A member of the RNA family "mir-393 microRNA precursor family" from Carya illinoinensis, 129 nucleotides long. The base pairs follow the family's consensus structure. Taxonomically the source falls in Carya (Eukaryota, Streptophyta, Mesangiospermae, Gunneridae). The match comes from Rfam's covariance-model search (62 bits).

RNA sequence: GAUGGAAACUUCCCAAGGGAUCGCAUGAUCCAAGGAUUGAGCGAAAUGAACAAAACCAAAACCCUAGACUCAUGAUGAUUUGGCCAUCGAUGAACAUUAGAUCAAUGCGAUCCCUUUGGAACUCUCCAU
Numbered sequence: 001g002a003u004g005g006a007a008a009c010u011u012c013c014c015a016a017g018g019g020a021u022c023g024c025a026u027g028a029u030c031c032a033a034g035g036a037u038u039g040a041g042c043g044a045a046a047u048g049a050a051c052a053a054a055a056c057c058a059a060a061a062c063c064c065u066a067g068a069c070u071c072a073u074g075a076u077g078a079u080u081u082g083g084c085c086a087u088c089g090a091u092g093a094a095c096a097u098u099a100g101a102u103c104a105a106u107g108c109g110a111u112c113c114c115u116u117u118g119g120a121a122c123u124c125u126c127c128a129u
Stems, first nucleotide, its partner, number of pairs: 002129005008123001010121004015116007023108003026104005035095001